[Rfam]
RNA sequence: AGUCAGUGAUGUGAUACUAUGUGUUACCUAAACCUAAAGUUGAUGUAAAUUCUAAAAUUACAGAGGACUUG
Numbered sequence: 001a002g003u004c005a006g007u008g009a010u011g012u013g014a015u016a017c018u019a020u021g022u023g024u025u026a027c028c029u030a031a032a033c034c035u036a037a038a039g040u041u042g043a044u045g046u047a048a049a050u051u052c053u054a055a056a057a058u059u060a061c062a063g064a065g066g067a068c069u070u071g
Stems, first nucleotide, its partner, number of pairs: 001069004
The record is a 71-nucleotide sequence from Vulpes vulpes, which matches "Small nucleolar RNA SNORD45" in Rfam. Rfam classes the family as a C/D-box small nucleolar RNA. Pairs were carried over by alignment from the consensus structure, which was predicted with PFOLD. Its family is annotated with RNA processing and nucleolus in the Gene Ontology. The organism belongs to Vulpes, within Eukaryota.